The record is a 78-nucleotide sequence from Pomacea canaliculata, which matches "Small nucleolar RNA SNORD45" in Rfam. The family has 11 seed sequences and 1,629 matches in Rfam 15.1. Pairs were carried over by alignment from the consensus structure, which was predicted with PFOLD. The match comes from Rfam's covariance-model search (43 bits). Gene Ontology terms of the family: RNA processing and nucleolus.
RNA sequence: AGCCAAUGAUGACACGCAUGUAUUAGCAUACUUAAGGUUGAUGAAACAUGUCCAGCUCUAGAAUUGCACUGAGGUUGU
Numbered sequence: 001a002g003c004c005a006a007u008g009a010u011g012a013c014a015c016g017c018a019u020g021u022a023u024u025a026g027c028a029u030a031c032u033u034a035a036g037g038u039u040g041a042u043g044a045a046a047c048a049u050g051u052c053c054a055g056c057u058c059u060a061g062a063a064u065u066g067c068a069c070u071g072a073g074g075u076u077g078u
Base pairs, nucleotide, nucleotide: 001076002075003074004073